[Rfam]
RNA sequence: UGCACAUGAUGUUUCUCACGAUGGUCUUCAUAUUUCCUUGUUAUGGGGAUGCUGACAAUGCUUCAAAGCACUACACUGAUGCAAUCUU
Numbered sequence: 001u002g003c004a005c006a007u008g009a010u011g012u013u014u015c016u017c018a019c020g021a022u023g024g025u026c027u028u029c030a031u032a033u034u035u036c037c038u039u040g041u042u043a044u045g046g047g048g049a050u051g052c053u054g055a056c057a058a059u060g061c062u063u064c065a066a067a068g069c070a071c072u073a074c075a076c077u078g079a080u081g082c083a084a085u086c087u088u
Stems, first nucleotide, its partner, number of pairs: 001083004
This 88-nucleotide RNA sequence from Strongylocentrotus purpuratus belongs to the Rfam family "Small nucleolar RNA SNORD35". U35 is a C/D box snoRNA located in intron 6 of ribosomal protein L13A and intron 3 of ribosomal protein S11 in humans and at homologous positions in mouse and chicken ribosomal protein genes. U35 guides the methylation of 2'-O-ribose sites in 28S rRNA. Gene Ontology terms of the family: RNA processing and nucleolus. Rfam 15.1 lists 1,842 matches to the family in 634 species.